[Rfam]
RNA: Metazoan signal recognition particle RNA
RNA sequence: ACUGGGAGUCGUGGCCGUACUCCUGUAAUGCCAGCUUCUCGGCAGGUUGGAAUGUGUGGAUGGUUUGAGCUGGGGAGCUCUGGUGAUUGGGGUGAUUACGUUGAUCUGGUAUCUCACUUAAGCUGGGCGUCAAUAUGGGCUCAGGGGCGGAGGCCCCAGUGUCCAGGUUAGCUAAGGAGAGAUGAACGAGCGAGGCGGGUAACGAGCAGCUAAAAAUCUCCGCGUCCAUUGCAGUAAGGAGACUGUACCGGAGAGUAUCCUCCUUCCACCAGCCUCGGCAACAUAGCCGGACCACAUUCCUA
Numbered sequence: 001a002c003u004g005g006g007a008g009u010c011g012u013g014g015c016c017g018u019a020c021u022c023c024u025g026u027a028a029u030g031c032c033a034g035c036u037u038c039u040c041g042g043c044a045g046g047u048u049g050g051a052a053u054g055u056g057u058g059g060a061u062g063g064u065u066u067g068a069g070c071u072g073g074g075g076a077g078c079u080c081u082g083g084u085g086a087u088u089g090g091g092g093u094g095a096u097u098a099c100g101u102u103g104a105u106c107u108g109g110u111a112u113c114u115c116a117c118u119u120a121a122g123c124u125g126g127g128c129g130u131c132a133a134u135a136u137g138g139g140c141u142c143a144g145g146g147g148c149g150g151a152g153g154c155c156c157c158a159g160u161g162u163c164c165a166g167g168u169u170a171g172c173u174a175a176g177g178a179g180a181g182a183u184g185a186a187c188g189a190g191c192g193a194g195g196c197g198g199g200u201a202a203c204g205a206g207c208a209g210c211u212a213a214a215a216a217u218c219u220c221c222g223c224g225u226c227c228a229u230u231g232c233a234g235u236a237a238g239g240a241g242a243c244u245g246u247a248c249c250g251g252a253g254a255g256u257a258u259c260c261u262c263c264u265u266c267c268a269c270c271a272g273c274c275u276c277g278g279c280a281a282c283a284u285a286g287c288c289g290g291a292c293c294a295c296a297u298u299c300c301u302a
Stems, first nucleotide, its partner, number of pairs: 001047003004024006029044003049300008061289005069279007080272006089263004097257003101253001105252008113241002117238004122232002124228007132169003136165005142159001144157005172176001179220005189211003196204002